[Rfam]
Nucleotides: 103
Base pairs, nucleotide, nucleotide: 001099002098004096005095006094007093008092010091011090015086016082017081018080019079020078021077033065037061038060
Number, partner (000 for none) and nucleotide at each position: 001099g002098g003000c004096u005095g006094g007093u008092c009000u010091g011090a012000a013000a014000a015086u016082a017081g018080u019079g020078a021077g022000u023000u024000a025000u026000c027000u028000c029000a030000a031000u032000u033065g034000a035000u036000u037061g038060u039000u040000c041000a042000c043000a044000g045000u046000c047000a048000g049000u050000c051000a052000c053000a054000g055000a056000u057000u058000g059000a060038a061037u062000u063000c064000c065033u066000u067000g068000c069000u070000c071000c072000c073000c074000c075000u076000u077021c078020u079019u080018a081017c082016u083000a084000a085000u086015a087000c088000a089000c090011u091010u092008g093007a094006c095005u096004a097000c098002u099001c100000u101000g102000a103000a
Notes
Rfam assigns this 103-nucleotide sequence from Homo sapiens to the family "Y RNA". Rfam classes the family as a non-coding RNA gene. A search with the family's covariance model found it, with a score of 49 bits. Pairs were carried over by alignment from the consensus structure, which is taken from published work.